Notes:
mir-263 microRNA precursor family: an 83-nucleotide RNA sequence from Ixodes scapularis. Its family is annotated with RISC complex and miRNA-mediated post-transcriptional gene silencing in the Gene Ontology. The literature on the family includes a 2009 paper in BMC Genomics by Li et al., "Direct sequencing and expression analysis of a large number of miRNAs in Aedes aegypti and a multi-species survey of novel mosquito miRNAs". It is one of the family's seed sequences. The family is grouped with related families in Rfam's "mir-182 clan".

RNA sequence: UACCUUCCGUCAAUGGCACUGGAAGAAUUCACGGGGUCUUGAUAGAAAUACCGUGACUUCUCCGGUGCUGUGGAUGGCGGCUA
Numbered sequence: 001u002a003c004c005u006u007c008c009g010u011c012a013a014u015g016g017c018a019c020u021g022g023a024a025g026a027a028u029u030c031a032c033g034g035g036g037u038c039u040u041g042a043u044a045g046a047a048a049u050a051c052c053g054u055g056a057c058u059u060c061u062c063c064g065g066u067g068c069u070g071u072g073g074a075u076g077g078c079g080g081c082u083a
Base pairs, nucleotide, nucleotide: 004080005079007077008076009075010074013071014070015069016068017067018066020064021063022062025059026058029056030055031054032053033052034051